[Rfam]
A member of the RNA family "Brucella sRNA 0739" from Brucella suis, 160 nucleotides long.
Taxonomically the source falls in Brucella suis (Bacteria, Pseudomonadota, Brucellaceae, Brucella).
Rfam's curators put it in the seed alignment.
The base pairs follow the family's consensus structure, which was predicted with RNAfold.
RNA sequence: AGUAAUGGUUGAAAAGCCCGCAAAUACAGGCUUAGUUGAGGGCAUCAGAAGAAGCCAUUGACUUGUCAGGCGUUUUUCUGAUCUCCAGAUUUCAUGUUGCGGACAGUUCCUGCUCGCAUCAGGGCCGGUCGGGAAACUCCGCCGGCCUUUAUUUUUAACA
Numbered sequence: 001a002g003u004a005a006u007g008g009u010u011g012a013a014a015a016g017c018c019c020g021c022a023a024a025u026a027c028a029g030g031c032u033u034a035g036u037u038g039a040g041g042g043c044a045u046c047a048g049a050a051g052a053a054g055c056c057a058u059u060g061a062c063u064u065g066u067c068a069g070g071c072g073u074u075u076u077u078c079u080g081a082u083c084u085c086c087a088g089a090u091u092u093c094a095u096g097u098u099g100c101g102g103a104c105a106g107u108u109c110c111u112g113c114u115c116g117c118a119u120c121a122g123g124g125c126c127g128g129u130c131g132g133g134a135a136a137c138u139c140c141g142c143c144g145g146c147c148u149u150u151a152u153u154u155u156u157a158a159c160a
Stems, first nucleotide, its partner, number of pairs: 008159008016031003020027001034091004040085003044082010054071003059068003095121002098118005104112003122148007130141004
Dot-bracket structure: .......(((((((((((.(......).)))..((((..(((.(((((((((((((..(((....)))))).)))))))))))))..))))...((.(((((.(((...))).))))).))(((((((.((((....)))))))))))...)))))))).